[Rfam]
RNA sequence: GAUAGCCAUAGAUGACAAAGGGAUCCAACGUGGGCUGGGUUAUCAAGCGUACCGUUUGCAAAUUGGCAUCGUACAACCCACCCCAGAUGGUUGCUUUGAGAACUAACAGCAGGGCACCGAACCCCAAAAAGAGCAGAUGAUGUCCCAAAAUAAUGCCCAGUUGUUUUGGAUCAUCCCA
Numbered sequence: 001g002a003u004a005g006c007c008a009u010a011g012a013u014g015a016c017a018a019a020g021g022g023a024u025c026c027a028a029c030g031u032g033g034g035c036u037g038g039g040u041u042a043u044c045a046a047g048c049g050u051a052c053c054g055u056u057u058g059c060a061a062a063u064u065g066g067c068a069u070c071g072u073a074c075a076a077c078c079c080a081c082c083c084c085a086g087a088u089g090g091u092u093g094c095u096u097u098g099a100g101a102a103c104u105a106a107c108a109g110c111a112g113g114g115c116a117c118c119g120a121a122c123c124c125c126a127a128a129a130a131g132a133g134c135a136g137a138u139g140a141u142g143u144c145c146c147a148a149a150a151u152a153a154u155g156c157c158c159a160g161u162u163g164u165u166u167u168g169g170a171u172c173a174u175c176c177c178a
Stems, first nucleotide, its partner, number of pairs: 136175006144169002147166002
A member of the RNA family "Antisense RNA which regulates isiA expression" from Thermosynechococcus vestitus, 178 nucleotides long. On this family, see Duhring et al., Proc Natl Acad Sci U S A 2006: "An internal antisense RNA regulates expression of the photosynthesis gene isiA". Taxonomically the source falls in Thermosynechococcus vestitus (Bacteria, Cyanobacteriota, Acaryochloridales, Thermosynechococcaceae). The base pairs follow the family's consensus structure, which was predicted with PFOLD.